[Rfam]
RNA sequence: AUCGUUCAUCUGAGUUUGGCUAAUUGCCGAACAAGACGGAAGUAGAGAGUUUGAUUAGUUUAACAGCACUCUUGAAGGAACGCGAU
Numbered sequence: 001a002u003c004g005u006u007c008a009u010c011u012g013a014g015u016u017u018g019g020c021u022a023a024u025u026g027c028c029g030a031a032c033a034a035g036a037c038g039g040a041a042g043u044a045g046a047g048a049g050u051u052u053g054a055u056u057a058g059u060u061u062a063a064c065a066g067c068a069c070u071c072u073u074g075a076a077g078g079a080a081c082g083c084g085a086u
Stems, first nucleotide, its partner, number of pairs: 003082005009036003039083001045073006
This 86-nucleotide RNA sequence from Leptolyngbyaceae cyanobacterium LF-bin-113 belongs to the Rfam family "Glutamine riboswitch aptamer (glnA leader)". The match comes from Rfam's covariance-model search (42 bits). For this family Rfam cites "Bacterial aptamers that selectively bind glutamine" (Ames and Breaker, RNA Biol, 2011).